[Rfam]
RNA sequence: UUCUUAUCCAGAGAGACCGAGGGACUUGGCCCGAUGACGUCUCAGCAACCUGCUCACGCAAGGUGCUGCUGCCAACAGGGAAACCUGGACGAUGAGGA
Numbered sequence: 001u002u003c004u005u006a007u008c009c010a011g012a013g014a015g016a017c018c019g020a021g022g023g024a025c026u027u028g029g030c031c032c033g034a035u036g037a038c039g040u041c042u043c044a045g046c047a048a049c050c051u052g053c054u055c056a057c058g059c060a061a062g063g064u065g066c067u068g069c070u071g072c073c074a075a076c077a078g079g080g081a082a083a084c085c086u087g088g089a090c091g092a093u094g095a096g097g098a
Stems, first nucleotide, its partner, number of pairs: 001098008013043005021032003026075004044067004049063002051060003071090001076087004
Shown here is a 98-nucleotide RNA from Sporosarcina sp. BI001-red, a member of the family "SAM riboswitch aptamer (S box leader)". Rfam describes the family as follows. The SAM riboswitch is found upstream of a number of genes which code for proteins involved in methionine or cysteine biosynthesis in Gram-positive bacteria. The SAM riboswitch acts at the level of transcription termination control. The predicted structure consists of a complex stem-loop region followed by a single stem loop terminator region. An alternative and mutually exclusive form involves bases in the 3' segment of helix 1 with those in the 5' region of helix 5 to form a structure termed the anti-terminator form. This entry represents the conserved core of the complex structure involving helices 1-4. The base pairs follow the family's consensus structure, which is taken from published work. Its family is annotated with regulation of gene expression in the Gene Ontology.